Shown here is a 172-nucleotide sequence from Sedimentibacter sp. zth1, a member of the family "6S / SsrS RNA". Rfam's curators write: E. coli 6S RNA was the first non coding RNA to be sequenced, but its function was unknown until recently.
RNA sequence: AGCAACCUGCGUUGUUCGGGAAUUAUUAAUUCAACCUACAAAGUAUAAACGGAGUAUCGUGUUUAAUCAUGGAUGACAGGCCCGCUUGACGGGAAGUCAAAAGUGAUUAGUAGAUUAUCCACCUGCAAUUAGCAGGUAUGAAUUAAAAAUUUGCGGCAAGUGCGGGCUUUUU
Numbered sequence: 001a002g003c004a005a006c007c008u009g010c011g012u013u014g015u016u017c018g019g020g021a022a023u024u025a026u027u028a029a030u031u032c033a034a035c036c037u038a039c040a041a042a043g044u045a046u047a048a049a050c051g052g053a054g055u056a057u058c059g060u061g062u063u064u065a066a067u068c069a070u071g072g073a074u075g076a077c078a079g080g081c082c083c084g085c086u087u088g089a090c091g092g093g094a095a096g097u098c099a100a101a102a103g104u105g106a107u108u109a110g111u112a113g114a115u116u117a118u119c120c121a122c123c124u125g126c127a128a129u130u131a132g133c134a135g136g137u138a139u140g141a142a143u144u145a146a147a148a149a150u151u152u153g154c155g156g157c158a159a160g161u162g163c164g165g166g167c168u169u170u171u172u
Stems, first nucleotide, its partner, number of pairs: 002170001004168001006166006012159004017155002031141003034137003051120003056115003062110001064109007076097002081093004